Shown here is a 54-nucleotide RNA sequence from Mikania micrantha, a member of the family "Plastid-ccsA-ndhD-1 3UTR RNA". Rfam classes the family as a cis-regulatory element. The base pairs follow the family's consensus structure, which was predicted with LocARNA. About the family: Plastid-ccsA-ndhD-1 is a non-coding RNA (ncRNA) recognised in plastids. It was found in the three prime untranslated region (3UTR) of ccsA and ndhD genes, its 3UTR location suggests a role in transcript maturation. It scores 52 bits against the family's covariance model. The source organism's lineage runs through Eukaryota, Embryophyta, Tracheophyta, Asteroideae and Mikania.
[Rfam]
RNA sequence: CAAUCGACAAGAACCAUGUGAAUCAAGUAGUAUAGUGAUUCACGCGGUUCUCGA
Numbered sequence: 001c002a003a004u005c006g007a008c009a010a011g012a013a014c015c016a017u018g019u020g021a022a023u024c025a026a027g028u029a030g031u032a033u034a035g036u037g038a039u040u041c042a043c044g045c046g047g048u049u050c051u052c053g054a
Stems, first nucleotide, its partner, number of pairs: 008053001010051006017044009